[Rfam]
RNA sequence: UCUGUGGAUUAGGUAGUUUCAUGUUGUUGGGCUCUCGCUCGCAAACGCAACAACAUCCAACUGCCCGAUUUACUGC
Numbered sequence: 001u002c003u004g005u006g007g008a009u010u011a012g013g014u015a016g017u018u019u020c021a022u023g024u025u026g027u028u029g030g031g032c033u034c035u036c037g038c039u040c041g042c043a044a045a046c047g048c049a050a051c052a053a054c055a056u057c058c059a060a061c062u063g064c065c066c067g068a069u070u071u072a073c074u075g076c
Base pairs, nucleotide, nucleotide: 004073005072006071007070008069009068010067012065013064014063015062016061017060018059022055023054024053025052026051027050028049029048031046
Dot-bracket structure: ...(((((((.(((((((...((((((((.(..............).))))))))...))))))).)))))))...